[Rfam]
RNA sequence: UUGCCCAAUGAUUAUAGAAAGACGCGUUAUUAUGAGGACUUUAUGCUGGAAUUCUUUACCCUUUUUUUUCCCCCUAUGCUUUACUUUUCUCCUCUUUCUAUGGAUGUCCAGCGUCCUGUGAGCAAGAUUAUGAGAUAUGAGGGCAA
Numbered sequence: 001u002u003g004c005c006c007a008a009u010g011a012u013u014a015u016a017g018a019a020a021g022a023c024g025c026g027u028u029a030u031u032a033u034g035a036g037g038a039c040u041u042u043a044u045g046c047u048g049g050a051a052u053u054c055u056u057u058a059c060c061c062u063u064u065u066u067u068u069u070c071c072c073c074c075u076a077u078g079c080u081u082u083a084c085u086u087u088u089c090u091c092c093u094c095u096u097u098c099u100a101u102g103g104a105u106g107u108c109c110a111g112c113g114u115c116c117u118g119u120g121a122g123c124a125a126g127a128u129u130a131u132g133a134g135a136u137a138u139g140a141g142g143g144c145a146a
Stems, first nucleotide, its partner, number of pairs: 001146006035055004040050002